The record is a 97-nucleotide RNA from Ganoderma sinense, which matches "Small nucleolar RNA snR60/Z15/Z230/Z193/J17" in Rfam. Gene Ontology terms of the family: RNA processing and nucleolus. It is annotated as a C/D-box small nucleolar RNA.

[Rfam]
RNA sequence: CCUUUGAGAUGAUACUCGAAUCAUCUAGCAUAGUUCACAUUGAACCGCGCAUGUAGAAAAACAUUCAUCUGUCUUUCGCUCCUAUCUGACUCACCCU
Number, nucleotide and partner (000 for none) at each position: 001c000002c000003u000004u000005u093006g092007a091008g090009a000010u000011g000012a000013u000014a000015c000016u000017c000018g000019a000020a000021u000022c000023a000024u000025c000026u000027a000028g000029c000030a000031u000032a000033g000034u000035u000036c000037a000038c000039a000040u000041u000042g000043a000044a000045c000046c000047g000048c000049g000050c000051a000052u000053g000054u000055a000056g000057a000058a000059a000060a000061a000062c000063a000064u000065u000066c000067a000068u000069c000070u000071g000072u000073c000074u000075u000076u000077c000078g000079c000080u000081c000082c000083u000084a000085u000086c000087u000088g000089a000090c008091u007092c006093a005094c000095c000096c000097u000